The record is a 120-nucleotide RNA sequence from Clostridium sp. MD294, which matches "azaaromatic riboswitch aptamer (yjdF RNA)" in Rfam. It scores 77 bits against the family's covariance model.

[Rfam]
RNA sequence: AUUUGCAAAGGUAAAAACACAACAGGGUUGGUAGUCCCUGUGCAGUCAUAAUAUGAUUGUCAGUAGCCUUCCUCACCUGUGCAUAUUGCACACAGGUCGUCCUUCCUUUGUUUAUUAUAA
Number, nucleotide and partner (000 for none) at each position: 001a000002u000003u000004u000005g111006c110007a109008a108009a107010g106011g105012u000013a000014a000015a000016a000017a000018c000019a000020c000021a000022a041023c040024a039025g038026g037027g036028u000029u000030g000031g000032u000033a000034g000035u000036c027037c026038c025039u024040g023041u022042g060043c059044a058045g057046u056047c055048a054049u053050a000051a000052u000053a049054u048055g047056a046057u045058u044059g043060u042061c000062a000063g000064u000065a000066g000067c000068c000069u000070u000071c096072c095073u094074c000075a000076c000077c000078u000079g000080u000081g000082c000083a000084u000085a000086u000087u000088g000089c000090a000091c000092a000093c000094a073095g072096g071097u000098c000099g000100u000101c000102c000103u000104u000105c011106c010107u009108u008109u007110g006111u005112u000113u000114a000115u000116u000117a000118u000119a000120a000